[Rfam]
Nucleotides: 200
Base pairs, nucleotide, nucleotide: 005195006194007193009191011189012188013187014186015185016184017183018182019181020180021179022178023177025176026175031169032168033167034166035165045155048152049151050150054145055144056143058141059140060139061138062137064135065134066133067132071128072127073126074125075124076123
Number, partner (000 for none) and nucleotide at each position: 001000u002000u003000g004000g005195u006194u007193u008000g009191u010000u011189u012188u013187a014186a015185g016184u017183c018182a019181a020180a021179c022178u023177u024000a025176u026175c027000c028000a029000a030000c031169u032168u033167u034166g035165a036000c037000u038000a039000a040000g041000u042000u043000u044000a045155u046000u047000a048152a049151a050150a051000a052000u053000a054145u055144a056143a057000u058141a059140a060139u061138a062137u063000a064135u065134a066133u067132a068000c069000u070000a071128c072127c073126a074125a075124a076123u077000a078000u079000a080000u081000g082000c083000a084000c085000u086000a087000u088000c089000a090000a091000a092000a093000a094000u095000a096000u097000a098000u099000u100000c101000u102000a103000u104000g105000g106000u107000g108000g109000a110000u111000u112000c113000a114000a115000c116000g117000a118000a119000a120000u121000a122000a123076a124075u125074u126073u127072g128071g129000u130000a131000u132067u133066g134065u135064a136000a137062a138061u139060a140059u141058u142000g143056u144055u145054a146000u147000a148000u149000c150050u151049u152048u153000c154000u155045a156000u157000a158000a159000a160000c161000u162000u163000g164000a165035u166034c167033a168032a169031a170000g171000u172000u173000g174000a175026g176025a177023a178022a179021g180020u181019u182018u183017g184016a185015c186014u187013u188012a189011g190000g191009a192000g193007a194006a195005a196000c197000c198000a199000a200000a